A member of the RNA family "FTHFS RNA", 124 nucleotides long. It is annotated as a cis-regulatory element.
[Rfam]
RNA sequence: ACCGAUAAAAACAUAUCGAUUGUUUUUAUACGAUACCGCGAACUCAUUCCAACGGGGAGCGGUAUGACAAAACUCAUCCUGCCGGCGCCAUUCCGACGGCCCCGGGCAAAUUUUAUGGAAGGAG
Numbered sequence: 001a002c003c004g005a006u007a008a009a010a011a012c013a014u015a016u017c018g019a020u021u022g023u024u025u026u027u028a029u030a031c032g033a034u035a036c037c038g039c040g041a042a043c044u045c046a047u048u049c050c051a052a053c054g055g056g057g058a059g060c061g062g063u064a065u066g067a068c069a070a071a072a073c074u075c076a077u078c079c080u081g082c083c084g085g086c087g088c089c090a091u092u093c094c095g096a097c098g099g100c101c102c103c104g105g106g107c108a109a110a111u112u113u114u115a116u117g118g119a120a121g122g123a124g
Stems, first nucleotide, its partner, number of pairs: 001020001003018005033065007043056003080108002082105002085102001